[Rfam]
RNA sequence: UAUAAAUAAUUGAACUGCCCUCGUAUAUGUUCGAAAAUAUGGUUCGAAUGUUUCUACCAAGCUACCGUAAAUGGUUUGACUAUGAAGGUGAAUAUAGCUAUG
Dot-bracket structure: .................((.(((((...(((((((.......)))))))........(((((((.......)))))))..))))).))..............

A member of the RNA family "Purine riboswitch aptamer" from Rummeliibacillus sp. TYF005, 102 nucleotides long.